[Rfam]
RNA sequence: AUGGAUCGAUGAUGUGAGAAUAAACUGCGUUAUCUAUCUGAAAUUUCCAAAUUGGAGCUGAAGGAUACAUUAAGCUUGCUGAGAUCCAAU
Numbered sequence: 001a002u003g004g005a006u007c008g009a010u011g012a013u014g015u016g017a018g019a020a021u022a023a024a025c026u027g028c029g030u031u032a033u034c035u036a037u038c039u040g041a042a043a044u045u046u047c048c049a050a051a052u053u054g055g056a057g058c059u060g061a062a063g064g065a066u067a068c069a070u071u072a073a074g075c076u077u078g079c080u081g082a083g084a085u086c087c088a089a090u
Base pairs, nucleotide, nucleotide: 002088003087004086005085006084

Small nucleolar RNA snoR27: a 90-nucleotide RNA from Olea europaea.
The family is grouped with related families in Rfam's "snR68 clan".
Its family is annotated with nucleolus and RNA processing in the Gene Ontology.
The source organism's lineage runs through Eukaryota, Streptophyta, Embryophyta, Mesangiospermae and Olea europaea.